[Rfam]
Shown here is a 152-nucleotide RNA from Thalictrum thalictroides, a member of the family "Small nucleolar RNA snoR145".
RNA sequence: UUGCGAAGAUCCCAGCAGAGAGUUAGGUCCUCAACAUUGAGAACUCUCUAACAUAUAACUAUCCUUCGUAGAUUGAGAUCAUUUUACACCGUUUCGUAGGAUGUCCAAACACAUUGAUUUUUGGUUCGUCUUGAAUAUUCGGACACAUUUAU
Number, nucleotide and partner (000 for none) at each position: 001u000002u000003g069004c068005g067006a066007a065008g064009a000010u000011c020012c000013c018014a000015g000016c000017a000018g013019a000020g011021a000022g000023u000024u000025a000026g047027g046028u000029c000030c041031u040032c039033a038034a000035c000036a000037u000038u033039g032040a031041g030042a000043a000044c000045u000046c027047u026048c000049u000050a000051a000052c000053a000054u000055a000056u000057a000058a000059c000060u000061a000062u000063c000064c008065u007066u006067c005068g004069u003070a000071g000072a000073u000074u000075g000076a000077g000078a000079u000080c000081a000082u000083u000084u000085u000086a000087c000088a000089c142090c141091g140092u000093u000094u137095c000096g000097u000098a000099g000100g130101a129102u000103g127104u000105c124106c123107a122108a121109a120110c000111a000112c000113a000114u000115u000116g000117a000118u000119u000120u109121u108122u107123g106124g105125u000126u000127c103128g000129u101130c100131u000132u000133g000134a000135a000136u000137a094138u000139u000140c091141g090142g089143a000144c000145a000146c000147a000148u000149u000150u000151a000152u000
The source organism's lineage runs through Eukaryota, Viridiplantae, Euphyllophyta, Ranunculaceae and Thalictrum. A reference for the family is Chen and Wu (2009), "Mining small RNA sequencing data: a new approach to identify small nucleolar RNAs in Arabidopsis", Nucleic Acids Res.